[Rfam]
RNA sequence: GAUCCACCCCGGCCCUCGGCCUCCAGCCGACCGGUUCCCGACACGACUUCCCCCGUGCCGGGCCCCGGACGGAUGGGGACCAGGGGCCGGGGAGCGCCCACC
Numbered sequence: 001g002a003u004c005c006a007c008c009c010c011g012g013c014c015c016u017c018g019g020c021c022u023c024c025a026g027c028c029g030a031c032c033g034g035u036u037c038c039c040g041a042c043a044c045g046a047c048u049u050c051c052c053c054c055g056u057g058c059c060g061g062g063c064c065c066c067g068g069a070c071g072g073a074u075g076g077g078g079a080c081c082a083g084g085g086g087c088c089g090g091g092g093a094g095c096g097c098c099c100a101c102c
Base pairs, nucleotide, nucleotide: 010089011088012087013086014085015084016083018081019080021078022077023076024075025074027072028071029070031068032067033066034065037062038061039060040059042057043056044055

Rfam assigns this 102-nucleotide sequence from Knoellia subterranea to the family "mraW RNA". Lineage of the source: Bacteria > Bacillati > Actinomycetes > Intrasporangiaceae > Knoellia subterranea. Rfam classes the family as a cis-regulatory element.